Background: Rfam assigns this 197-nucleotide RNA sequence from Anopheles gambiae to the family "drz-agam-2-2 ribozyme".

[Rfam]
RNA sequence: CCUAUCUCAUUACUCUGCAAUGGGAUAGGAUCUGAAGCCCCUCGAGGGAUAAUACAGGCUCUCCCAUCCAACUCCUAUUCCGACACGUCCUCGUCGUGCAGAGUGGUAACGUGUGCCACCACAUAUCCAAGCUUGGGUACACGGGCUUGACCCAACCCCUUGGCCGGAUGGUGGCCAGACUACGGAAAGCCAAAGGA
Numbered sequence: 001c002c003u004a005u006c007u008c009a010u011u012a013c014u015c016u017g018c019a020a021u022g023g024g025a026u027a028g029g030a031u032c033u034g035a036a037g038c039c040c041c042u043c044g045a046g047g048g049a050u051a052a053u054a055c056a057g058g059c060u061c062u063c064c065c066a067u068c069c070a071a072c073u074c075c076u077a078u079u080c081c082g083a084c085a086c087g088u089c090c091u092c093g094u095c096g097u098g099c100a101g102a103g104u105g106g107u108a109a110c111g112u113g114u115g116c117c118a119c120c121a122c123a124u125a126u127c128c129a130a131g132c133u134u135g136g137g138u139a140c141a142c143g144g145g146c147u148u149g150a151c152c153c154a155a156c157c158c159c160u161u162g163g164c165c166g167g168a169u170g171g172u173g174g175c176c177a178g179a180c181u182a183c184g185g186a187a188a189g190c191c192a193a194a195g196g197a
Base pairs, nucleotide, nucleotide: 014101023069024068025067026066028064029063030062032058033057073197074196075195076194078193079192082190085097086096087095089106090105110184111183112182113181114177115176117173118172119171120170125169126168127167128166133155134154135153136152137151138150158163

Background:
The organism belongs to Anopheles gambiae, within Eukaryota. A reference for the family is Webb et al. (2009), "Widespread occurrence of self-cleaving ribozymes", Science. Rfam links the family to the GO term catalytic activity.